[Rfam]
RNA sequence: CACCCAGCCGACACUUCAGUUGCAAGAUCGGAGGGUGAAGUCUGAAGAG
Number, nucleotide and partner (000 for none) at each position: 001c000002a000003c034004c033005c000006a000007g000008c031009c030010g000011a000012c026013a000014c000015u046016u045017c044018a043019g042020u000021u000022g000023c000024a000025a000026g012027a000028u000029c000030g009031g008032a000033g004034g003035g000036u000037g000038a000039a000040g000041u000042c019043u018044g017045a016046a015047g000048a000049g000